[Rfam]
RNA: Lysine riboswitch aptamer
RNA sequence: UAAAUAGGUAGAGGCCGCAUUGCUUAAUAGUAUGUUACGGGAGGGUGACUCCAAGGAUCGUAAUAGAAAGGAAGUUUUGCCGAAACUAAGUAUGUCUAGUCAAGGAUGCUUAGUUGGGGUUAUUUUGAACAAGAAUAACACUGUCAUGUAUAUGGGGACAUAUAGAUGGGGAGCUACAAAAGUG
Numbered sequence: 001u002a003a004a005u006a007g008g009u010a011g012a013g014g015c016c017g018c019a020u021u022g023c024u025u026a027a028u029a030g031u032a033u034g035u036u037a038c039g040g041g042a043g044g045g046u047g048a049c050u051c052c053a054a055g056g057a058u059c060g061u062a063a064u065a066g067a068a069a070g071g072a073a074g075u076u077u078u079g080c081c082g083a084a085a086c087u088a089a090g091u092a093u094g095u096c097u098a099g100u101c102a103a104g105g106a107u108g109c110u111u112a113g114u115u116g117g118g119g120u121u122a123u124u125u126u127g128a129a130c131a132a133g134a135a136u137a138a139c140a141c142u143g144u145c146a147u148g149u150a151u152a153u154g155g156g157g158a159c160a161u162a163u164a165g166a167u168g169g170g171g172a173g174c175u176a177c178a179a180a181a182g183u184g
Stems, first nucleotide, its partner, number of pairs: 008177004017080003022075004033065008084115010095104001116142002119139008144169004149164004